The family of this 316-nucleotide RNA from Helicobacter acinonychis is "Bacterial RNase P class A". Lineage of the source: Bacteria > Pseudomonadati > Epsilonproteobacteria > Campylobacterales > Helicobacter acinonychis. Ribonuclease P (RNase P) is a ubiquitous endoribonuclease, found in archaea, bacteria and eukarya as well as chloroplasts and mitochondria. The sequence is in the family's curated seed alignment. The family's consensus secondary structure is taken from published work.

RNA sequence: CGCAUUAGAAGAUGGUCGCUAUUUUAGAAUAGAGGAAAGUCCGGGCUACAUUAGACAAAAUUCCAUCUAACGGAUGGCUAGCGCAAGCUAAGGGAAAGUGCCACAGAAAGCAAACCGCCUUUUAAGGUAAGGGUGAAAGGGUGGGGUAAGAGCCCACCAAAGCUAAAGCAAUUUAGUUUGUUUGGCAAACCCAAUUUGUAGCAAGAAGUGCAUGGUAAGUCUAAAUUGAUACGCACUUCGCUUGAGGAAUAUUGCAAAAUAUUCCCUAGAUAAAUGACCAUCCAUUGACAGAACCCGGCUUAUUCUAAUGCUUUAU
Numbered sequence: 001c002g003c004a005u006u007a008g009a010a011g012a013u014g015g016u017c018g019c020u021a022u023u024u025u026a027g028a029a030u031a032g033a034g035g036a037a038a039g040u041c042c043g044g045g046c047u048a049c050a051u052u053a054g055a056c057a058a059a060a061u062u063c064c065a066u067c068u069a070a071c072g073g074a075u076g077g078c079u080a081g082c083g084c085a086a087g088c089u090a091a092g093g094g095a096a097a098g099u100g101c102c103a104c105a106g107a108a109a110g111c112a113a114a115c116c117g118c119c120u121u122u123u124a125a126g127g128u129a130a131g132g133g134u135g136a137a138a139g140g141g142u143g144g145g146g147u148a149a150g151a152g153c154c155c156a157c158c159a160a161a162g163c164u165a166a167a168g169c170a171a172u173u174u175a176g177u178u179u180g181u182u183u184g185g186c187a188a189a190c191c192c193a194a195u196u197u198g199u200a201g202c203a204a205g206a207a208g209u210g211c212a213u214g215g216u217a218a219g220u221c222u223a224a225a226u227u228g229a230u231a232c233g234c235a236c237u238u239c240g241c242u243u244g245a246g247g248a249a250u251a252u253u254g255c256a257a258a259a260u261a262u263u264c265c266c267u268a269g270a271u272a273a274a275u276g277a278c279c280a281u282c283c284a285u286u287g288a289c290a291g292a293a294c295c296c297g298g299c300u301u302a303u304u305c306u307a308a309u310g311c312u313u314u315a316u
Stems, first nucleotide, its partner, number of pairs: 002311009011282007019032005037301003041298005046201004058197005063077005078092001079090004093192002098190002100186003115132002117128004140158006159181001160179008205239004215230002218227003246265008